[Rfam]
RNA sequence: CGCGGUCCUCGGUAGUGGUCUCCGGGAGCAGACGACCGUGCAGCGCAGAACAGUGCAGAGCACGCGUGAGUCCCCGUGGAUCUCGAUCGAAGACCGGG
Number, nucleotide and partner (000 for none) at each position: 001c098002g000003c096004g095005g094006u093007c092008c000009u090010c089011g088012g087013u086014a000015g000016u000017g082018g081019u080020c079021u078022c000023c076024g075025g074026g073027a000028g071029c070030a000031g000032a000033c000034g000035a000036c000037c000038g000039u000040g000041c000042a000043g000044c000045g000046c000047a000048g000049a000050a000051c000052a000053g000054u000055g000056c000057a000058g000059a000060g000061c000062a000063c000064g000065c000066g000067u000068g000069a000070g029071u028072c000073c026074c025075c024076g023077u000078g021079g020080a019081u018082c017083u000084c000085g000086a013087u012088c011089g010090a009091a000092g007093a006094c005095c004096g003097g000098g001
A member of the RNA family "Actino-pnp RNA" from Arthrobacter sp. Bz4, 98 nucleotides long. It scores 55 bits against the family's covariance model. The organism belongs to Arthrobacter, within Bacteria.